This 305-nucleotide RNA sequence from Metallosphaera sedula belongs to the Rfam family "Archaeal signal recognition particle RNA". The match comes from Rfam's covariance-model search (181 bits). Gene Ontology terms of the family: signal recognition particle, plasma membrane targeting and SRP-dependent cotranslational protein targeting to membrane, signal sequence recognition. The organism belongs to Metallosphaera sedula, within Archaea. On this family, see Batey et al., J Mol Biol 2001: "Structural and energetic analysis of RNA recognition by a universally conserved protein from the signal recognition particle".

[Rfam]
RNA sequence: CGGUCGGGUAGGGUGGAGGUCUCGCCAGCCUCUUUACCCGCUUGGCGUAAUGCGGGCACCAGUAACCUGCAUAUGGCCGUGCCAUUAAUGAAGGAGUCCAGAGCUUACGAUGAGGAUCGCCCAGCAGGGCUGACGCAUACAGUCUCCUCCUCCGGAGGGAGGUGGAGAACUGUAUUAGCCGGGAGAACCGACUAGGCCCGGAAGGGAGCAGUCGUACCCGGACGUCGGCGCUUGCUGGUCACCGGUCUGAGGAGACUCUGGGUAAGCUCCUCCAUUAAUGCGCGGUCAUAUGCGGGAGCCGACCU
Dot-bracket structure: .((((((.(..(((((((((.......))))))...(((((..........))))).))).....(((((((((((((.(((.(((((((.(((.((((((((.((.(.....((((((.(((((((((((((((.(((((((((((.(((((....))))).))))).))))))...(((((.....((((....(((....)))....))))..))))).))))))).))))))))....))))))..).)).)))))))).....))).)))))))))).)))))))))))))).)))))).